COG3860 RNA: a 58-nucleotide RNA sequence from Yoonia sediminilitoris. Pairs were carried over by alignment from the consensus structure, which is taken from published work. The family's RNA type in Rfam is cis-regulatory element. Taxonomically the source falls in Yoonia (Bacteria, Pseudomonadota, Alphaproteobacteria, Rhodobacterales).
[Rfam]
RNA sequence: CGGUCAUCAGUUCACCAAGGCGUCGCCAGCCCGGCCACGGGCCACGCUAAACCUGAUA
Numbered sequence: 001c002g003g004u005c006a007u008c009a010g011u012u013c014a015c016c017a018a019g020g021c022g023u024c025g026c027c028a029g030c031c032c033g034g035c036c037a038c039g040g041g042c043c044a045c046g047c048u049a050a051a052c053c054u055g056a057u058a
Base pairs, nucleotide, nucleotide: 002016003015004014029042030041031040032039